[Rfam]
RNA sequence: UCCACCGUAAGAUGGAAUCUGAAGGAAGUCGGCGGCAAAUCUCCGCCCUUAGGUACACGAACUUCAUAUAAGGCUAGGUAUGCUUGGGUGAGACUGCGAAACAAGCCAAAGCCCAUACUGCCAAAGGGCAUACAGAGUAAAUGAAGAGGGGACAUGGAGAGGAAGAAUGCGUG
Numbered sequence: 001u002c003c004a005c006c007g008u009a010a011g012a013u014g015g016a017a018u019c020u021g022a023a024g025g026a027a028g029u030c031g032g033c034g035g036c037a038a039a040u041c042u043c044c045g046c047c048c049u050u051a052g053g054u055a056c057a058c059g060a061a062c063u064u065c066a067u068a069u070a071a072g073g074c075u076a077g078g079u080a081u082g083c084u085u086g087g088g089u090g091a092g093a094c095u096g097c098g099a100a101a102c103a104a105g106c107c108a109a110a111g112c113c114c115a116u117a118c119u120g121c122c123a124a125a126g127g128g129c130a131u132a133c134a135g136a137g138u139a140a141a142u143g144a145a146g147a148g149g150g151g152a153c154a155u156g157g158a159g160a161g162g163a164a165g166a167a168u169g170c171g172u173g
Base pairs, nucleotide, nucleotide: 001016002015003014004013006011030171031170036165040160041159042158043157044156045155046151047150048149049148050147062146063145064144065143066142067141073138074137075136078133079132080131081130082129083128086114087113088112089111092107094105095104
Notes:
The record is a 173-nucleotide RNA sequence from Terrilactibacillus tamarindi, which matches "Group II catalytic intron D1-D4-3" in Rfam. Pairs were carried over by alignment from the consensus structure. Rfam describes the family as follows. Group II introns are found in rRNA, tRNA and mRNA of organelles in fungi, plants and protists, and also in mRNA in bacteria. Rfam links the family to the GO term Group II intron splicing.